[Rfam]
RNA: TPP riboswitch aptamer (THI element)
Organism: Clostridium chromiireducens
RNA sequence: UUGAAUAACUAGGGGAGCUAAUAUUUUGGCUGAGAUUGGAAAGAUUGAUUUCCUAGACUCUUAUAACCUGAUUUGGUUAAUACCAACGUAGGGAAGUAUAUUGAUAUUUUU
Numbered sequence: 001u002u003g004a005a006u007a008a009c010u011a012g013g014g015g016a017g018c019u020a021a022u023a024u025u026u027u028g029g030c031u032g033a034g035a036u037u038g039g040a041a042a043g044a045u046u047g048a049u050u051u052c053c054u055a056g057a058c059u060c061u062u063a064u065a066a067c068c069u070g071a072u073u074u075g076g077u078u079a080a081u082a083c084c085a086a087c088g089u090a091g092g093g094a095a096g097u098a099u100a101u102u103g104a105u106a107u108u109u110u111u
Stems, first nucleotide, its partner, number of pairs: 008097003011061004017030005038053004067092004073086004